[Rfam]
RNA sequence: AAGCAUCUGGCGUAGGAGAUACUACAGUCAUGAAGAUGGUUUUCCCAGGUGAGGCUUAUCCAUUGCACUAUGGAUGUGCUGACUCCUGCGAUUAUCCCAAAUGUGGGAAACUCAACUGUAUAAUUUGUGGUAGUGGGGGACUGUGUGUGUGCUCUCCCCUG
Numbered sequence: 001a002a003g004c005a006u007c008u009g010g011c012g013u014a015g016g017a018g019a020u021a022c023u024a025c026a027g028u029c030a031u032g033a034a035g036a037u038g039g040u041u042u043u044c045c046c047a048g049g050u051g052a053g054g055c056u057u058a059u060c061c062a063u064u065g066c067a068c069u070a071u072g073g074a075u076g077u078g079c080u081g082a083c084u085c086c087u088g089c090g091a092u093u094a095u096c097c098c099a100a101a102u103g104u105g106g107g108a109a110a111c112u113c114a115a116c117u118g119u120a121u122a123a124u125u126u127g128u129g130g131u132a133g134u135g136g137g138g139g140a141c142u143g144u145g146u147g148u149g150u151g152c153u154c155u156c157c158c159c160u161g
Base pairs, nucleotide, nucleotide: 010119011118012117015045016044017043018042019041021040022039023038024037047087048086049085051083053080054079055078057076058075059074060073061072090113091112092110093108096106097105135160136159137158138157139156140155143152144151145150

Rfam assigns this 161-nucleotide RNA from Saimiri boliviensis to the family "U1 spliceosomal RNA".
U1 is a small nuclear RNA (snRNA) component of the spliceosome (involved in pre-mRNA splicing).
The literature on the family includes a 1997 paper in Nucleic Acids Res by Zwieb, "The uRNA database".
Lineage of the source: Eukaryota > Bilateria > Vertebrata > Sarcopterygii > Saimiri boliviensis.
A search with the family's covariance model found it, with a score of 104 bits.
The family is grouped with related families in Rfam's "U1 clan".
It is annotated as a spliceosomal small nuclear RNA.